[Rfam]
RNA sequence: GUUGCAAAUGAUGAUAAAACAGACAGGGACAUCUGCACUCCAUUGGAGAUUGAUGACUAGUCUAAAUGGGAAUCUCUCAGAUGCAUU
Numbered sequence: 001g002u003u004g005c006a007a008a009u010g011a012u013g014a015u016a017a018a019a020c021a022g023a024c025a026g027g028g029a030c031a032u033c034u035g036c037a038c039u040c041c042a043u044u045g046g047a048g049a050u051u052g053a054u055g056a057c058u059a060g061u062c063u064a065a066a067u068g069g070g071a072a073u074c075u076c077u078c079a080g081a082u083g084c085a086u087u
Stems, first nucleotide, its partner, number of pairs: 003085004
A member of the RNA family "Small nucleolar RNA R44/J54/Z268 family" from Malus baccata, 87 nucleotides long.
The match comes from Rfam's covariance-model search (84 bits).
Rfam 15.1 lists 1,168 matches to the family in 228 species.
The base pairs follow the family's consensus structure, which was predicted with PFOLD.
The family is grouped with related families in Rfam's "SNORD74 clan".